[Rfam]
RNA sequence: CCUCAGGCUCCCUGGGACACUAACAGAGCAACUGCUCCCCAGAGAGAGUGCGCCAAGCUCCCUGAAGGGCUGCAGCGCCCACGGCGGAACCCGGGAGCAGCU
Numbered sequence: 001c002c003u004c005a006g007g008c009u010c011c012c013u014g015g016g017a018c019a020c021u022a023a024c025a026g027a028g029c030a031a032c033u034g035c036u037c038c039c040c041a042g043a044g045a046g047a048g049u050g051c052g053c054c055a056a057g058c059u060c061c062c063u064g065a066a067g068g069g070c071u072g073c074a075g076c077g078c079c080c081a082c083g084g085c086g087g088a089a090c091c092c093g094g095g096a097g098c099a100g101c102u
Stems, first nucleotide, its partner, number of pairs: 007098006014091002018087001020084002028078002032075004037069003041063002044060003049055002
Annotation: This 102-nucleotide RNA sequence from Canis lupus belongs to the Rfam family "mir-8904 microRNA precursor family". Rfam 15.1 lists 207 matches to the family in 4 species. A search with the family's covariance model found it, with a score of 99 bits. Rfam links the family to the GO terms RISC complex and miRNA-mediated post-transcriptional gene silencing.